[Rfam]
Rfam assigns this 85-nucleotide RNA sequence from Tritonibacter aquimaris to the family "chrB-a RNA". By type it is a cis-regulatory element. The match comes from Rfam's covariance-model search (58 bits).
RNA sequence: GGCAUGGGGCUCAUGCGACCGCCCCGUGAGGCGCCAGCCAAAGUCGCAUCCGCUGAAACCCCAAUUUAUCAGAGGAUGUAGCAUG
Numbered sequence: 001g002g003c004a005u006g007g008g009g010c011u012c013a014u015g016c017g018a019c020c021g022c023c024c025c026g027u028g029a030g031g032c033g034c035c036a037g038c039c040a041a042a043g044u045c046g047c048a049u050c051c052g053c054u055g056a057a058a059c060c061c062c063a064a065u066u067u068a069u070c071a072g073a074g075g076a077u078g079u080a081g082c083a084u085g
Base pairs, nucleotide, nucleotide: 005026006025007024008023009022010021046079047078048077049076050075051074